[Rfam]
The family of this 101-nucleotide sequence from Cereibacter ovatus is "TPP riboswitch aptamer (THI element)".
RNA sequence: GGCGCUACCUCGGGGUGCCCGAAAGGGCUGAGACGCGGCGACGCGAACCCGUUGAACCUGACCCGGUUAGAACCGGCGGAGGAAAGGUGCCGAAAACGCCC
Numbered sequence: 001g002g003c004g005c006u007a008c009c010u011c012g013g014g015g016u017g018c019c020c021g022a023a024a025g026g027g028c029u030g031a032g033a034c035g036c037g038g039c040g041a042c043g044c045g046a047a048c049c050c051g052u053u054g055a056a057c058c059u060g061a062c063c064c065g066g067u068u069a070g071a072a073c074c075g076g077c078g079g080a081g082g083a084a085a086g087g088u089g090c091c092g093a094a095a096a097c098g099c100c101c
Stems, first nucleotide, its partner, number of pairs: 006089005011051004016045001017028004035044003057082003063076004